[Rfam]
RNA sequence: CAGCAGGAUAUCUACAGUGCAGCUUGUGUGGUGCUGUGUUGUCGUUCCCCCUGCUGAAAGUAAAAUGUUUCCAGCUAUCCCUGUCUGCCUACCACCUCUGGCAGCCAGGGACGCAAGGUUUCAGACAC
Numbered sequence: 001c002a003g004c005a006g007g008a009u010a011u012c013u014a015c016a017g018u019g020c021a022g023c024u025u026g027u028g029u030g031g032u033g034c035u036g037u038g039u040u041g042u043c044g045u046u047c048c049c050c051c052u053g054c055u056g057a058a059a060g061u062a063a064a065a066u067g068u069u070u071c072c073a074g075c076u077a078u079c080c081c082u083g084u085c086u087g088c089c090u091a092c093c094a095c096c097u098c099u100g101g102c103a104g105c106c107a108g109g110g111a112c113g114c115a116a117g118g119u120u121u122c123a124g125a126c127a128c
Stems, first nucleotide, its partner, number of pairs: 003054005014042010080109004085104004
RNA: Small nucleolar RNA SNORA63